[Rfam]
RNA: FMN riboswitch aptamer (RFN element)
Organism: Paeniglutamicibacter cryotolerans
RNA sequence: AACGUGCUCCGGGGUCGGUGUAAUUCCGAACCGGCGGUUAUAGUCCGCGACCCGCAACGCCUCCCCUGGGGGACAUUGCGGUUGAACUGGUGAAAUUCCGGUACCGACAGUUAAAGUCUGGAUGGGAGAAGCACGUA
Numbered sequence: 001a002a003c004g005u006g007c008u009c010c011g012g013g014g015u016c017g018g019u020g021u022a023a024u025u026c027c028g029a030a031c032c033g034g035c036g037g038u039u040a041u042a043g044u045c046c047g048c049g050a051c052c053c054g055c056a057a058c059g060c061c062u063c064c065c066c067u068g069g070g071g072g073a074c075a076u077u078g079c080g081g082u083u084g085a086a087c088u089g090g091u092g093a094a095a096u097u098c099c100g101g102u103a104c105c106g107a108c109a110g111u112u113a114a115a116g117u118c119u120g121g122a123u124g125g126g127a128g129a130a131g132c133a134c135g136u137a
Stems, first nucleotide, its partner, number of pairs: 002136007009128001016028003030117002032106002034048004043104002052081006086102005108120003